[Rfam]
RNA sequence: ACAAGAAAAAAUUAAAAGCCAGAGACAGCAGGUGCAUUAAUUGCUUAAUCUCCUGCCGAGGUUUACACAAAAAUUAUUGGUUGAUUCUACAGCCUUUGACUAUGGAUGCGAUAACGCAUCCUGUGUAAAUUACUUGUAAAACCCUGGCUAAACCUAAAACAGCCAGGGUUAAUUGUUUUUAGCU
Numbered sequence: 001a002c003a004a005g006a007a008a009a010a011a012u013u014a015a016a017a018g019c020c021a022g023a024g025a026c027a028g029c030a031g032g033u034g035c036a037u038u039a040a041u042u043g044c045u046u047a048a049u050c051u052c053c054u055g056c057c058g059a060g061g062u063u064u065a066c067a068c069a070a071a072a073a074u075u076a077u078u079g080g081u082u083g084a085u086u087c088u089a090c091a092g093c094c095u096u097u098g099a100c101u102a103u104g105g106a107u108g109c110g111a112u113a114a115c116g117c118a119u120c121c122u123g124u125g126u127a128a129a130u131u132a133c134u135u136g137u138a139a140a141a142c143c144c145u146g147g148c149u150a151a152a153c154c155u156a157a158a159a160c161a162g163c164c165a166g167g168g169u170u171a172a173u174u175g176u177u178u179u180u181a182g183c184u
Stems, first nucleotide, its partner, number of pairs: 028056005034044003141169009
Shown here is a 184-nucleotide sequence from Calothrix sp. PCC 6303, a member of the family "Ribosomal protein L10 leader". Rfam classes the family as a cis-regulatory leader. Rfam's curators write: This family is a putative r-protein leader autoregulatory structure found in B. subtilis and other low-GC Gram-positive bacteria. It is located in the 5' untranslated regions of mRNAs encoding ribosomal proteins L10 and L12 (rplJ-rplL). It scores 71 bits against the family's covariance model.